[Rfam]
Rfam assigns this 52-nucleotide RNA from Candidatus Tokpelaia sp. JSC189 to the family "ffh sRNA". By type it is a small RNA.
RNA sequence: CCUACCGGAGGUCAACAUCCGACAGUGCGUUGCGCUCUCGGGUGUUUAUUUA
Number, nucleotide and partner (000 for none) at each position: 001c000002c000003u000004a000005c000006c000007g000008g000009a000010g000011g000012u000013c000014a000015a000016c044017a043018u042019c041020c040021g039022a038023c000024a000025g035026u034027g033028c032029g000030u000031u000032g028033c027034g026035c025036u000037c000038u022039c021040g020041g019042g018043u017044g016045u000046u000047u000048a000049u000050u000051u000052a000